[Rfam]
RNA sequence: GCCGAGCUUUGUAACGUGGGCUUGUAACCCGAGUGGGGGCAACAAUGUGGUGGAAUGUUGGGUCCAUCUUGAUGGAUGGGCUUGAAGGGCUAAUGUUCUGGCCUGCCCUGUCCAAGCACAGAGUUGGGUCAAGUGGUCUAUACGAAAGUAUAGCCACUUGGCCUUUAGAGUGGGAUGGACUGCGUGAGGCUGGUUUCACAGAGCAACGACUAGUCCCCGCUCUGUGCAGUGGAAGGAUCACGGGCUAGUGCUCUUUGAGUCCUAACAAAAACCUGAUAGGUUGCCUAAUUAAACCAUCACUUUU
Numbered sequence: 001g002c003c004g005a006g007c008u009u010u011g012u013a014a015c016g017u018g019g020g021c022u023u024g025u026a027a028c029c030c031g032a033g034u035g036g037g038g039g040c041a042a043c044a045a046u047g048u049g050g051u052g053g054a055a056u057g058u059u060g061g062g063u064c065c066a067u068c069u070u071g072a073u074g075g076a077u078g079g080g081c082u083u084g085a086a087g088g089g090c091u092a093a094u095g096u097u098c099u100g101g102c103c104u105g106c107c108c109u110g111u112c113c114a115a116g117c118a119c120a121g122a123g124u125u126g127g128g129u130c131a132a133g134u135g136g137u138c139u140a141u142a143c144g145a146a147a148g149u150a151u152a153g154c155c156a157c158u159u160g161g162c163c164u165u166u167a168g169a170g171u172g173g174g175a176u177g178g179a180c181u182g183c184g185u186g187a188g189g190c191u192g193g194u195u196u197c198a199c200a201g202a203g204c205a206a207c208g209a210c211u212a213g214u215c216c217c218c219g220c221u222c223u224g225u226g227c228a229g230u231g232g233a234a235g236g237a238u239c240a241c242g243g244g245c246u247a248g249u250g251c252u253c254u255u256u257g258a259g260u261c262c263u264a265a266c267a268a269a270a271a272c273c274u275g276a277u278a279g280g281u282u283g284c285c286u287a288a289u290u291a292a293a294c295c296a297u298c299a300c301u302u303u304u
Stems, first nucleotide, its partner, number of pairs: 001040003004023006028037003044303002047300007056291002058288006068279002075272001077270001078262008087254003091250002098248008107236002111233004116227009126164011138153006165170001172217005183208003190201003
Dot-bracket structure: (((((((((........))))))....(((....))))))...((.(((((((..((((((((....((.....(.(((((((((.(((.((.....((((((((.((..((((.(((((((((.(((((((((((.((((((....)))))))))))))))))(....).(((((......(((....(((......)))....)))....))))).)))))))))..)))).))....)))))))))).))))))))))).......).).....))...)))))).))..))))))).)).
RNA: Plant signal recognition particle RNA
Organism: Solanum lycopersicum